[Rfam]
RNA sequence: AUUUAAAACCGUCUCCGAGCCGCGGCGCCUAAAGGGAACAUCCCCAUGGCGGUCCGGCCUAUGGGUAUCGCUGGAAACGGCGUUGCCUUCCUUAUGCAAAGGGGACCCAGCGACGCGGAG
Numbered sequence: 001a002u003u004u005a006a007a008a009c010c011g012u013c014u015c016c017g018a019g020c021c022g023c024g025g026c027g028c029c030u031a032a033a034g035g036g037a038a039c040a041u042c043c044c045c046a047u048g049g050c051g052g053u054c055c056g057g058c059c060u061a062u063g064g065g066u067a068u069c070g071c072u073g074g075a076a077a078c079g080g081c082g083u084u085g086c087c088u089u090c091c092u093u094a095u096g097c098a099a100a101g102g103g104g105a106c107c108c109a110g111c112g113a114c115g116c117g118g119a120g
Base pairs, nucleotide, nucleotide: 004113011106012105013104014103015102016101019058020057021056022055024053026051027050028049029048034044035043036042063088064087065086066085067084069082070081071080072079073078090096
Dot-bracket structure: ...(......((((((..((((.(.((((....(((.....)))...)))).).))))....(((((.(((((....))))).))))).(.....)....))))))......).......